[Rfam]
RNA: Aggregatibacter sRNA 96
Organism: Aggregatibacter actinomycetemcomitans
RNA sequence: AUCUGUUUUAGGACCUCUUCACCUUUUGCGCCGGUUUGUUUUAUAAAUUCGGCGUAGUAAGGUUUCAUAGCGUCUUUAAACGGUGUUAAAUCAGGAUGCGUAACGGUGACACCUUGU
Numbered sequence: 001a002u003c004u005g006u007u008u009u010a011g012g013a014c015c016u017c018u019u020c021a022c023c024u025u026u027u028g029c030g031c032c033g034g035u036u037u038g039u040u041u042u043a044u045a046a047a048u049u050c051g052g053c054g055u056a057g058u059a060a061g062g063u064u065u066c067a068u069a070g071c072g073u074c075u076u077u078a079a080a081c082g083g084u085g086u087u088a089a090a091u092c093a094g095g096a097u098g099c100g101u102a103a104c105g106g107u108g109a110c111a112c113c114u115u116g117u
Stems, first nucleotide, its partner, number of pairs: 005081004010076005015070002021063005026057009035047005082113007094099001